[Rfam]
Nucleotides: 093
Stems, first nucleotide, its partner, number of pairs: 001093002004090003049061004
Number, partner (000 for none) and nucleotide at each position: 001093a002092u003000g004090c005089u006088g007000c008000u009000g010000u011000g012000a013000u014000g015000a016000a017000a018000g019000u020000a021000g022000a023000u024000u025000a026000a027000a028000a029000u030000u031000u032000c033000c034000a035000a036000g037000u038000c039000a040000g041000a042000c043000u044000u045000c046000a047000g048000a049061g050060a051059u052058u053000u054000u055000c056000g057000a058052a059051a060050u061049c062000a063000a064000u065000a066000a067000g068000a069000a070000u071000g072000a073000c074000a075000a076000u077000a078000c079000u080000a081000a082000a083000u084000c085000u086000u087000u088006u089005g090004g091000g092002a093001u